Rfam assigns this 76-nucleotide RNA sequence from Electrophorus electricus to the family "let-7 microRNA precursor family". The source organism's lineage runs through Eukaryota, Metazoa, Bilateria, Euteleostomi and Electrophorus. Rfam's curators write: This family represents the microRNAs (miRNA) let-7 and mir-98. let-7 was identified from a study of developmental timing in C. elegans, and was later shown to be part of a much larger class of non-coding RNAs termed miRNAs. Pairs were carried over by alignment from the consensus structure, which was predicted with RNAalifold. Rfam 15.1 lists 8,694 matches to the family in 797 species.

[Rfam]
RNA sequence: UCGGGAUGAGGUAGUAGGUUGUAUAGUUUAGAGUCACACCGUAGAAGAUAACUGUACAGCCUCCUAGCUUUCCCUG
Dot-bracket structure: (.((((.(((.(((.((((((((((((............(......)...)))))))))))).))).))))))).)